[Rfam]
Background:
The family of this 74-nucleotide RNA from Rousettus aegyptiacus is "GAIT element". It scores 65 bits against the family's covariance model. The family has 8 seed sequences and 121 matches in Rfam 15.1. This family represents a cis-acting element in the 3'-UTR of the ceruloplasmin (Cp) gene called gamma interferon inhibitor of translation (GAIT). The GAIT element is involved in selective translational silencing of the Cp transcript. Ceruloplasmin (Cp) is a multifunctional, copper-containing glycoprotein produced by the liver and secreted into the plasma.

RNA sequence: GUAUGUGAAAGUGUUGAAUAGAAUGUUUACUUUGGAAUGGCUAUAAGCAUUACAAAAAAAGAUUAAAAACAUAC
Numbered sequence: 001g002u003a004u005g006u007g008a009a010a011g012u013g014u015u016g017a018a019u020a021g022a023a024u025g026u027u028u029a030c031u032u033u034g035g036a037a038u039g040g041c042u043a044u045a046a047g048c049a050u051u052a053c054a055a056a057a058a059a060a061g062a063u064u065a066a067a068a069a070c071a072u073a074c
Stems, first nucleotide, its partner, number of pairs: 001074006010064003022051006033043003
Dot-bracket structure: ((((((...(((.........((((((.....(((.....)))..))))))..........)))....))))))